[Rfam]
RNA sequence: GUUCCAUGAUGAUCACCUCAUGCGUGUCAACUGACACCCCCCCUGCACUCUUCUUUUCCUCCUGGCCAGCGUUCUGCUGAGCUGGAGAGGAACACGGGCGUGUCUUGGGGGGAAAUGAUCAUAGCAGAAGGAUGUCCCUGAGAAC
Numbered sequence: 001g002u003u004c005c006a007u008g009a010u011g012a013u014c015a016c017c018u019c020a021u022g023c024g025u026g027u028c029a030a031c032u033g034a035c036a037c038c039c040c041c042c043c044u045g046c047a048c049u050c051u052u053c054u055u056u057u058c059c060u061c062c063u064g065g066c067c068a069g070c071g072u073u074c075u076g077c078u079g080a081g082c083u084g085g086a087g088a089g090g091a092a093c094a095c096g097g098g099c100g101u102g103u104c105u106u107g108g109g110g111g112g113a114a115a116u117g118a119u120c121a122u123a124g125c126a127g128a129a130g131g132a133u134g135u136c137c138c139u140g141a142g143a144a145c
Stems, first nucleotide, its partner, number of pairs: 001145004045103004050098003
Shown here is a 145-nucleotide RNA sequence from Pogona vitticeps, a member of the family "Small nucleolar RNA SNORD10". The family's consensus secondary structure was predicted with WAR. For this family Rfam cites "RNomics: an experimental approach that identifies 201 candidates for novel, small, non-messenger RNAs in mouse" (Huttenhofer et al., EMBO J, 2001). The match comes from Rfam's covariance-model search (47 bits). NCBI's taxonomy places the organism under Eukaryota, Vertebrata, Sauria, Bifurcata, Pogona.